[Rfam]
RNA sequence: UGAUUCCUCAGUUCGGUAAGGUUAGCGAACCGUCGAAACCUCGAGUCAUGGGCUUUGAUCGUAAGGUGUCGAGUUAAGCGUUGACAGGGGAAACCUAGGCUGAGUAUUGAGCUGCGCUUACGAGUCUCUUUAAGAGUGCUGAGCUAGUUGUGUGAUAGGGAAGGCAAUACGAUGAAUAGACAUAAAAACUGUCAGGUAGCGCUAGUUAUUCAUCGGCUCUUCUCAGUCAUAGACCU
Numbered sequence: 001u002g003a004u005u006c007c008u009c010a011g012u013u014c015g016g017u018a019a020g021g022u023u024a025g026c027g028a029a030c031c032g033u034c035g036a037a038a039c040c041u042c043g044a045g046u047c048a049u050g051g052g053c054u055u056u057g058a059u060c061g062u063a064a065g066g067u068g069u070c071g072a073g074u075u076a077a078g079c080g081u082u083g084a085c086a087g088g089g090g091a092a093a094c095c096u097a098g099g100c101u102g103a104g105u106a107u108u109g110a111g112c113u114g115c116g117c118u119u120a121c122g123a124g125u126c127u128c129u130u131u132a133a134g135a136g137u138g139c140u141g142a143g144c145u146a147g148u149u150g151u152g153u154g155a156u157a158g159g160g161a162a163g164g165c166a167a168u169a170c171g172a173u174g175a176a177u178a179g180a181c182a183u184a185a186a187a188a189c190u191g192u193c194a195g196g197u198a199g200c201g202c203u204a205g206u207u208a209u210u211c212a213u214c215g216g217c218u219c220u221u222c223u224c225a226g227u228c229a230u231a232g233a234c235c236u
Base pairs, nucleotide, nucleotide: 012037013036014035015034016033020031021030022029039090040089041088042087045085046084047083048082049080050079051075052074053073054072055071057069058067059066060065109228111227112226113225114224116222132221133220134219135218136217137216138165139164140163144158145157146156170215171214172213173212174211175210176209177208178207179206
Rfam assigns this 236-nucleotide sequence from Osedax symbiont Rs1 to the family "Group II catalytic intron D1-D4-6". Lineage of the source: Bacteria > Pseudomonadati > Pseudomonadota > Gammaproteobacteria > Oceanospirillaceae. It scores 111 bits against the family's covariance model.